RNA sequence: GCAUGGGUCUGGAUUUAUGGAAGGGUACCCCAUAGCUCCUCCAUAGUGUACCCCAUGCAAGAGUAGAUGGCCCUCCUGAACCAUGGCCGUCCCAGUGCCUGUGGGUCCUGGACUCAAAUGGGGGGCACAGCU
Numbered sequence: 001g002c003a004u005g006g007g008u009c010u011g012g013a014u015u016u017a018u019g020g021a022a023g024g025g026u027a028c029c030c031c032a033u034a035g036c037u038c039c040u041c042c043a044u045a046g047u048g049u050a051c052c053c054c055a056u057g058c059a060a061g062a063g064u065a066g067a068u069g070g071c072c073c074u075c076c077u078g079a080a081c082c083a084u085g086g087c088c089g090u091c092c093c094a095g096u097g098c099c100u101g102u103g104g105g106u107c108c109u110g111g112a113c114u115c116a117a118a119u120g121g122g123g124g125g126c127a128c129a130g131c132u
Stems, first nucleotide, its partner, number of pairs: 001058004005053004015046006022040003025036002071125006083114001087111002089107001090105003

A member of the RNA family "Small nucleolar RNA SNORA42/SNORA80 family" from Pelodiscus sinensis, 132 nucleotides long.
Lineage of the source: Eukaryota > Chordata > Teleostomi > Euteleostomi > Pelodiscus.
The match comes from Rfam's covariance-model search (77 bits).
The members of this family belong to the H/ACA class of snoRNAs that guide the sites of modification of uridines to pseudouridines.
The family's consensus secondary structure was predicted with RNAalifold.